[Rfam]
RNA sequence: CUCGGCCGCCCUGGAGAGAGUCCGCACAGUACGGACCGCCGAAGGCGCAACCCGCCCGGAAACGCUCAGGCACAAGGGACACGGCGGCCGCA
Dot-bracket structure: .....(((((.((......((((.........)))).(((((..(((...((.....))...))))).)))........)).))))).....
Shown here is a 92-nucleotide RNA from Acidihalobacter ferrooxydans, a member of the family "Glycine riboswitch aptamer". The organism belongs to Acidihalobacter, within Bacteria. This family represents the bacterial glycine riboswitch. Pairs were carried over by alignment from the consensus structure.